[Rfam]
RNA: c-di-GMP-I riboswitch aptamer
RNA sequence: ACGCGAGAAAGGCAAACCGGAUGAAAAUCCGCGACGCAAAGCUAGAGGGGCUUCUGACGCCGGCAUCAUGGCGUCUUGCCAGCCAGCUGCCGAA
Numbered sequence: 001a002c003g004c005g006a007g008a009a010a011g012g013c014a015a016a017c018c019g020g021a022u023g024a025a026a027a028u029c030c031g032c033g034a035c036g037c038a039a040a041g042c043u044a045g046a047g048g049g050g051c052u053u054c055u056g057a058c059g060c061c062g063g064c065a066u067c068a069u070g071g072c073g074u075c076u077u078g079c080c081a082g083c084c085a086g087c088u089g090c091c092g093a094a
Base pairs, nucleotide, nucleotide: 012037013036018031019030020029021028022027040088041087042086043085047084048083049080050079051078057074058073059072060071061070062069